[Rfam]
RNA: Small nucleolar RNA SNORD34
Organism: Urocynchramus pylzowi
RNA sequence: GGUGUCGGUGAUGUCAGCUGUACCUACAUUGUUUGAUUGCUGCUGAGAAAAACCCAAAUUCCUGAGACACCC
Numbered sequence: 001g002g003u004g005u006c007g008g009u010g011a012u013g014u015c016a017g018c019u020g021u022a023c024c025u026a027c028a029u030u031g032u033u034u035g036a037u038u039g040c041u042g043c044u045g046a047g048a049a050a051a052a053c054c055c056a057a058a059u060u061c062c063u064g065a066g067a068c069a070c071c072c
Stems, first nucleotide, its partner, number of pairs: 001071001003069004